mir-m21-1 microRNA precursor family: a 74-nucleotide sequence from Muromegalovirus muridbeta1.

[Rfam]
RNA sequence: CCCCCGCUUGACCGAGGCCCCCAUCGUGCACACGCAGUAAACUACCACCGAUAGGGGACACGUUCAAGCCGGGG
Numbered sequence: 001c002c003c004c005c006g007c008u009u010g011a012c013c014g015a016g017g018c019c020c021c022c023a024u025c026g027u028g029c030a031c032a033c034g035c036a037g038u039a040a041a042c043u044a045c046c047a048c049c050g051a052u053a054g055g056g057g058a059c060a061c062g063u064u065c066a067a068g069c070c071g072g073g074g
Stems, first nucleotide, its partner, number of pairs: 001074004006069006013062002016059001018057004023052004027047002

Rfam links the family to the GO terms RISC complex and miRNA-mediated post-transcriptional gene silencing.